Small nucleolar RNA SNORA26: a 126-nucleotide RNA sequence from Xenopus tropicalis.
The literature on the family includes a 2001 paper in EMBO J by Huttenhofer et al., "RNomics: an experimental approach that identifies 201 candidates for novel, small, non-messenger RNAs in mouse".
The match comes from Rfam's covariance-model search (49 bits).
The snoRNA HBI-6 belong to the H/ACA family of snoRNAs, guiding the pseudouridylation of position U4522 if the 28S rRNA. HBI-6 is the human orthologue of mouse MBI-6 snoRNA.

RNA sequence: UUGCCCAUUCGACGCUUUCUCCUGAUGCAUCGCAGUGGCUAACACAGGGGGGUAGAUCAUGGCCUCACUAAAACACAGGGAUUGAGGGCAAACACUUCCCCCUGUAUCCUGUCGUGAGGUACACAC
Numbered sequence: 001u002u003g004c005c006c007a008u009u010c011g012a013c014g015c016u017u018u019c020u021c022c023u024g025a026u027g028c029a030u031c032g033c034a035g036u037g038g039c040u041a042a043c044a045c046a047g048g049g050g051g052g053u054a055g056a057u058c059a060u061g062g063c064c065u066c067a068c069u070a071a072a073a074c075a076c077a078g079g080g081a082u083u084g085a086g087g088g089c090a091a092a093c094a095c096u097u098c099c100c101c102c103u104g105u106a107u108c109c110u111g112u113c114g115u116g117a118g119g120u121a122c123a124c125a126c
Stems, first nucleotide, its partner, number of pairs: 002054005008048002014043001016041001019038001021035001062120001064118005075105006084097003088093001